[Rfam]
Nucleotides: 098
Stems, first nucleotide, its partner, number of pairs: 010085001012083004018077002021074005027068004032062001034060009
Number, partner (000 for none) and nucleotide at each position: 001000u002000g003000c004000a005000g006000c007000a008000c009000g010085c011000a012083c013082g014081a015080u016000g017000a018077g019076g020000c021074c022073u023072c024071c025070u026000c027068c028067c029066g030065c031000u032062c033000g034060g035059u036058c037057u038056g039055a040054c041053g042052c043000a044000c045000u046000u047000c048000c049000c050000c051000g052042g053041u054040g055039u056038c057037a058036g059035a060034c061000a062032g063000u064000c065030g066029c067028g068027g069000a070025g071024g072023g073022a074021g075000a076019c077018c078000u079000g080015a081014u082013c083012g084000g085010g086000u087000g088000u089000a090000c091000c092000g093000c094000a095000a096000g097000c098000a

The family of this 98-nucleotide RNA from Sanguibacter gelidistatuariae is "mraW RNA". A search with the family's covariance model found it, with a score of 59 bits. Taxonomically the source falls in Sanguibacter (Bacteria, Actinomycetota, Actinomycetes, Micrococcales). By type it is a cis-regulatory element.